RNA sequence: AGGCAUAUCCGUAGACCUUGCCUGGCUGCGUGUAGCCUGGCAGGGGGGACAGUUUAUGCAAGAGAAAUUGGAGUUGAUGCAAGUGCCAACCAGCUUAAUCAGUGACUGGAUAAAUUGCAGUACUCCAACAUUC
Numbered sequence: 001a002g003g004c005a006u007a008u009c010c011g012u013a014g015a016c017c018u019u020g021c022c023u024g025g026c027u028g029c030g031u032g033u034a035g036c037c038u039g040g041c042a043g044g045g046g047g048g049a050c051a052g053u054u055u056a057u058g059c060a061a062g063a064g065a066a067a068u069u070g071g072a073g074u075u076g077a078u079g080c081a082a083g084u085g086c087c088a089a090c091c092a093g094c095u096u097a098a099u100c101a102g103u104g105a106c107u108g109g110a111u112a113a114a115u116u117g118c119a120g121u122a123c124u125c126c127a128a129c130a131u132u133c
Base pairs, nucleotide, nucleotide: 003059004058005057006056007055016045017044018043019042020041021040022039024037070126071125072124073123075122078119079118080117090109091108092107093106
The record is a 133-nucleotide RNA from Jaculus jaculus, which matches "Small nucleolar RNA SNORA58" in Rfam.
From the family's description: ACA52 is a member of the H/ACA class of snoRNA that guide the sites of modification of uridines to pseudouridines.
The family is grouped with related families in Rfam's "SNORA44 clan".
Its family is annotated with RNA processing and nucleolus in the Gene Ontology.
On this family, see Huttenhofer et al., EMBO J 2001: "RNomics: an experimental approach that identifies 201 candidates for novel, small, non-messenger RNAs in mouse".
The base pairs follow the family's consensus structure, which was predicted with PFOLD.